This 83-nucleotide RNA sequence from Sphenodon punctatus belongs to the Rfam family "mir-181 microRNA precursor family". Gene Ontology terms of the family: miRNA-mediated post-transcriptional gene silencing and RISC complex. NCBI's taxonomy places the organism under Eukaryota, Eumetazoa, Vertebrata, Teleostomi, Sphenodon.

RNA sequence: AAGUCACAGUCAACAUUCAUUGCUGUCGGUGGGUUGUGAUGCUGAAAGAGAAACUCGCUGAUCAGUGGAUGUAACUGCGGCGG
Numbered sequence: 001a002a003g004u005c006a007c008a009g010u011c012a013a014c015a016u017u018c019a020u021u022g023c024u025g026u027c028g029g030u031g032g033g034u035u036g037u038g039a040u041g042c043u044g045a046a047a048g049a050g051a052a053a054c055u056c057g058c059u060g061a062u063c064a065g066u067g068g069a070u071g072u073a074a075c076u077g078c079g080g081c082g083g
Base pairs, nucleotide, nucleotide: 004080005079007077008076014071015070016069017068018067019066020065021064022063025062026061027060028059029058030057031056033054034053035052